[Rfam]
RNA: mir-223 microRNA precursor family
RNA sequence: ACGGACGCACGCAGGGCUUCCCUCCGUGUAUUUGACGAUCUGAUCGCACACUCCGUCUGCACCAGAGUGUCAGUUUGUCAAAUAUACAAAGGGCGGCCUCUGACCCG
Numbered sequence: 001a002c003g004g005a006c007g008c009a010c011g012c013a014g015g016g017c018u019u020c021c022c023u024c025c026g027u028g029u030a031u032u033u034g035a036c037g038a039u040c041u042g043a044u045c046g047c048a049c050a051c052u053c054c055g056u057c058u059g060c061a062c063c064a065g066a067g068u069g070u071c072a073g074u075u076u077g078u079c080a081a082a083u084a085u086a087c088a089a090a091g092g093g094c095g096g097c098c099u100c101u102g103a104c105c106c107g
Stems, first nucleotide, its partner, number of pairs: 020093004026087001028085011040073002048070003052066002